[Rfam]
RNA: Group II catalytic intron D1-D4-3
Organism: Lederbergia lenta
RNA sequence: UCCAUGGUGACGUAGAAUUUGAAGGAAGUCGGAGGCUCGGUCUGAGGUACACGAACCACAUUCGAGGUACUGGUUUCUGGAUGAGUUUGCAAUACAAAGCCCCAAAUAUCUCGGGAAGGAACAGGAUAAAUGGGGUAGAUAGAUGAGGGGAAAUUAGAUGAA
Numbered sequence: 001u002c003c004a005u006g007g008u009g010a011c012g013u014a015g016a017a018u019u020u021g022a023a024g025g026a027a028g029u030c031g032g033a034g035g036c037u038c039g040g041u042c043u044g045a046g047g048u049a050c051a052c053g054a055a056c057c058a059c060a061u062u063c064g065a066g067g068u069a070c071u072g073g074u075u076u077c078u079g080g081a082u083g084a085g086u087u088u089g090c091a092a093u094a095c096a097a098a099g100c101c102c103c104a105a106a107u108a109u110c111u112c113g114g115g116a117a118g119g120a121a122c123a124g125g126a127u128a129a130a131u132g133g134g135g136u137a138g139a140u141a142g143a144u145g146a147g148g149g150g151a152a153a154u155u156a157g158a159u160g161a162a
Base pairs, nucleotide, nucleotide: 001016002015004013005012006011029161030160031159035155036149037146038145039144040140041139042138043137044136056135057134059132060131061130067127068126071123073122074121075120076119077118078117079102080101082099085095086094088092